[Rfam]
RNA sequence: CGGCGGAGCAGGGCUUAGCUGGCCUGUGAACAGUUAGUUCCCUGCGUGUUCACAGUGGCUAAGUUCCGCCCCUCCA
Numbered sequence: 001c002g003g004c005g006g007a008g009c010a011g012g013g014c015u016u017a018g019c020u021g022g023c024c025u026g027u028g029a030a031c032a033g034u035u036a037g038u039u040c041c042c043u044g045c046g047u048g049u050u051c052a053c054a055g056u057g058g059c060u061a062a063g064u065u066c067c068g069c070c071c072c073u074c075c076a
Stems, first nucleotide, its partner, number of pairs: 011066010026053007
mir-27 microRNA precursor family: a 76-nucleotide RNA sequence from Ornithorhynchus anatinus. Its family is annotated with miRNA-mediated post-transcriptional gene silencing and RISC complex in the Gene Ontology. The base pairs follow the family's consensus structure, which was predicted with RNAalifold.